[Rfam]
RNA sequence: CUCUGGAGAAGCUCGUUUACCGGGUGCCGAAGGUGCAACGCGGGAAGAAAUUCCUGCCAAUCUCUCAGGCAAAAGGACAGAG
Numbered sequence: 001c002u003c004u005g006g007a008g009a010a011g012c013u014c015g016u017u018u019a020c021c022g023g024g025u026g027c028c029g030a031a032g033g034u035g036c037a038a039c040g041c042g043g044g045a046a047g048a049a050a051u052u053c054c055u056g057c058c059a060a061u062c063u064c065u066c067a068g069g070c071a072a073a074a075g076g077a078c079a080g081a082g
Stems, first nucleotide, its partner, number of pairs: 001082005012024004026070003029066002033064001035062001040057005

Shown here is an 82-nucleotide RNA sequence from bacterium 1xD42-67, a member of the family "Glycine riboswitch aptamer". It scores 50 bits against the family's covariance model. Its family is annotated with glycine biosynthetic process in the Gene Ontology.